This 128-nucleotide RNA from Rotaria sp. Silwood1 belongs to the Rfam family "U4 spliceosomal RNA". It is annotated as a spliceosomal small nuclear RNA. Its family is annotated with U4 snRNP and spliceosomal tri-snRNP complex assembly in the Gene Ontology. A reference for the family is Zwieb (1997), "The uRNA database", Nucleic Acids Res.
[Rfam]
RNA sequence: AUUCUUACUCAGAGGUAAUACCUUAUCUAAUGAGCGUUUAGUGACGAGAGAUUAUUGCUAAUUGCAAUCUACUACUAAUGCUUCACAUUGAUUUUAGGUCAAUGUAAUUUUUCCUGCUUCUUUGGAAG
Numbered sequence: 001a002u003u004c005u006u007a008c009u010c011a012g013a014g015g016u017a018a019u020a021c022c023u024u025a026u027c028u029a030a031u032g033a034g035c036g037u038u039u040a041g042u043g044a045c046g047a048g049a050g051a052u053u054a055u056u057g058c059u060a061a062u063u064g065c066a067a068u069c070u071a072c073u074a075c076u077a078a079u080g081c082u083u084c085a086c087a088u089u090g091a092u093u094u095u096a097g098g099u100c101a102a103u104g105u106a107a108u109u110u111u112u113c114c115u116g117c118u119u120c121u122u123u124g125g126a127a128g
Stems, first nucleotide, its partner, number of pairs: 020052001022050003026047002034042002085105009117128004